[Rfam]
RNA sequence: UGGAGAAGGGGAGCGCGUGCAAAGUGUUCAUCAAUGGCAUUCGGAAGAAUGUGUCAAGAGAAUUUGCACGUGCCCUGCUUCUCCAAC
Numbered sequence: 001u002g003g004a005g006a007a008g009g010g011g012a013g014c015g016c017g018u019g020c021a022a023a024g025u026g027u028u029c030a031u032c033a034a035u036g037g038c039a040u041u042c043g044g045a046a047g048a049a050u051g052u053g054u055c056a057a058g059a060g061a062a063u064u065u066g067c068a069c070g071u072g073c074c075c076u077g078c079u080u081c082u083c084c085a086a087c
Stems, first nucleotide, its partner, number of pairs: 001085008010076002013073011
This 87-nucleotide RNA sequence from Arachis hypogaea belongs to the Rfam family "MIR164 microRNA precursor family". The family's consensus secondary structure was predicted with RNAalifold. Taxonomically the source falls in Arachis (Eukaryota, Embryophyta, Fabaceae, Papilionoideae).